[Rfam]
RNA sequence: CGUAGAGAUGUGCCUCAAGGACUGUCUAACCUGAGAAUGGUGAAGAUGAAGGUCAAUCUCAGGUUCGUCAGCCCAUGAAACACUUCUCAUU
Numbered sequence: 001c002g003u004a005g006a007g008a009u010g011u012g013c014c015u016c017a018a019g020g021a022c023u024g025u026c027u028a029a030c031c032u033g034a035g036a037a038u039g040g041u042g043a044a045g046a047u048g049a050a051g052g053u054c055a056a057u058c059u060c061a062g063g064u065u066c067g068u069c070a071g072c073c074c075a076u077g078a079a080a081c082a083c084u085u086c087u088c089a090u091u
Stems, first nucleotide, its partner, number of pairs: 005088004010083003015078002019074002022071003026067001028065009038055002
Dot-bracket structure: ....((((.(((..((..((.(((.(.(((((((((.((..............)).))))))))).).))).))..))..))).))))...
A member of the RNA family "mir-1388 microRNA precursor family" from Chiloscyllium punctatum, 91 nucleotides long.
Lineage of the source: Eukaryota > Opisthokonta > Metazoa > Chordata > Chiloscyllium.